[Rfam]
RNA sequence: UGAAAAAAUAAAAAUUUCAGUUUCUUCUUAAGUGAAGAAAACUCUUUGUAAAUGUCCUAGAGAAAUAUAGUAGCUUUCUGUUCACACUUUGCAAGGAAAAAGGGUGGAUCGUUCCACUACUGACAUAU
Numbered sequence: 001u002g003a004a005a006a007a008a009u010a011a012a013a014a015u016u017u018c019a020g021u022u023u024c025u026u027c028u029u030a031a032g033u034g035a036a037g038a039a040a041a042c043u044c045u046u047u048g049u050a051a052a053u054g055u056c057c058u059a060g061a062g063a064a065a066u067a068u069a070g071u072a073g074c075u076u077u078c079u080g081u082u083c084a085c086a087c088u089u090u091g092c093a094a095g096g097a098a099a100a101a102g103g104g105u106g107g108a109u110c111g112u113u114c115c116a117c118u119a120c121u122g123a124c125a126u127a128u
Stems, first nucleotide, its partner, number of pairs: 002057001004055001006053001009050002019043004023038005068122006087102004
This 128-nucleotide sequence from Myotis lucifugus belongs to the Rfam family "Small Cajal body specific RNA 24". NCBI's taxonomy places the organism under Eukaryota, Chordata, Craniata, Dipnotetrapodomorpha, Myotis. The literature on the family includes a 2002 paper in EMBO J by Darzacq et al., "Cajal body-specific small nuclear RNAs: a novel class of 2'-O-methylation and pseudouridylation guide RNAs". About the family: scaRNAs are a specific class of small nuclear RNAs which localise to the Cajal bodies and guide the modification of RNA polymerase II transcribed spliceosomal RNAs U1, U2, U4, U5 and U12. ACA12 belongs to the H/ACA box class of guide RNAs as it has the predicted hairpin-hinge-hairpin-tail structure,the conserved H/ACA-box motifs and is found associated with GAR1. Its family is annotated with nucleolus, RNA processing and Cajal body in the Gene Ontology. The family has 23 seed sequences and 689 matches in Rfam 15.1. Rfam classes the family as a small Cajal body RNA.